Description:
The record is a 72-nucleotide RNA sequence from Alligator sinensis, which matches "Mammalian CPEB3 ribozyme" in Rfam.

Nucleotides: 072
Base pairs, nucleotide, nucleotide: 010039012037013036016072017071018070019069020068021067022066023035024034025033044061045060046059047058048057049056
Number, partner (000 for none) and nucleotide at each position: 001000a002000a003000a004000g005000g006000u007000c008000a009000g010039g011000g012037c013036c014000a015000u016072a017071g018070c019069a020068g021067a022066a023035g024034c025033a026000c027000u028000c029000c030000u031000g032000a033025u034024g035023c036013g037012g038000g039010c040000a041000u042000g043000u044061c045060a046059g047058a048057u049056u050000c051000c052000a053000a054000c055000a056049a057048a058047u059046c060045u061044g062000c063000a064000a065000a066022u067021u068020c069019u070018g071017c072016u

A search with the family's covariance model found it, with a score of 46 bits. The family's consensus secondary structure is taken from published work.